RNA: Fluoride riboswitch aptamer (crcB RNA motif)
RNA sequence: CGCGCCCAAGGCGAUGGAUUUCCGCCGGGCCUUUGGGCCGAACCGCCCGGCCCUAGGGCAACUUGGGGUGACAGGCUGAUGAUUCCUACCUUUCG
Numbered sequence: 001c002g003c004g005c006c007c008a009a010g011g012c013g014a015u016g017g018a019u020u021u022c023c024g025c026c027g028g029g030c031c032u033u034u035g036g037g038c039c040g041a042a043c044c045g046c047c048c049g050g051c052c053c054u055a056g057g058g059c060a061a062c063u064u065g066g067g068g069u070g071a072c073a074g075g076c077u078g079a080u081g082a083u084u085c086c087u088a089c090c091u092u093u094c095g
Stems, first nucleotide, its partner, number of pairs: 010026004016086003020082002045076003